[Rfam]
RNA sequence: CUCUUAUCCAGAGCGGUGGAGGGACCGGCCCUGUGAAGCCGCGGCAACCGGUGGGCGUGCGCCCACGUCACGGUGCCAAUUCCGGCCCGCUUCGGCGGGGAAGAUAAGGG
Numbered sequence: 001c002u003c004u005u006a007u008c009c010a011g012a013g014c015g016g017u018g019g020a021g022g023g024a025c026c027g028g029c030c031c032u033g034u035g036a037a038g039c040c041g042c043g044g045c046a047a048c049c050g051g052u053g054g055g056c057g058u059g060c061g062c063c064c065a066c067g068u069c070a071c072g073g074u075g076c077c078a079a080u081u082c083c084g085g086c087c088c089g090c091u092u093c094g095g096c097g098g099g100g101a102a103g104a105u106a107a108g109g110g
Base pairs, nucleotide, nucleotide: 001110002109003108004107005106006105007104008103013042014041015040016039017038021031022030023029025085026084027083028082043077044076045075046074048073049072050069051068052067053066081102086099087098088097089096090095

The family of this 110-nucleotide RNA sequence from Marinithermus hydrothermalis is "SAM riboswitch aptamer (S box leader)". Gene Ontology term of the family: regulation of gene expression.